The family of this 55-nucleotide RNA sequence from Astyanax mexicanus is "U7 small nuclear RNA". Pairs were carried over by alignment from the consensus structure, which was predicted with PFOLD. It scores 53 bits against the family's covariance model. About the family: Animal histone pre-mRNAs are spliced by a different mechanism than nuclear pre-mRNAs and self-splicing introns. This processing involves the U7 snRNP, which contains only one RNA species: U7. NCBI's taxonomy places the organism under Eukaryota, Metazoa, Bilateria, Ostariophysi, Astyanax. Rfam 15.1 lists 10,439 matches to the family in 569 species.

RNA sequence: AAAUUUUGCUCUUUUAGUAUUUGUCCAGAAGGUUUCUCCGCUUGGAGAAGCCCAC
Numbered sequence: 001a002a003a004u005u006u007u008g009c010u011c012u013u014u015u016a017g018u019a020u021u022u023g024u025c026c027a028g029a030a031g032g033u034u035u036c037u038c039c040g041c042u043u044g045g046a047g048a049a050g051c052c053c054a055c
Stems, first nucleotide, its partner, number of pairs: 031052009
Dot-bracket structure: ..............................(((((((((....)))))))))...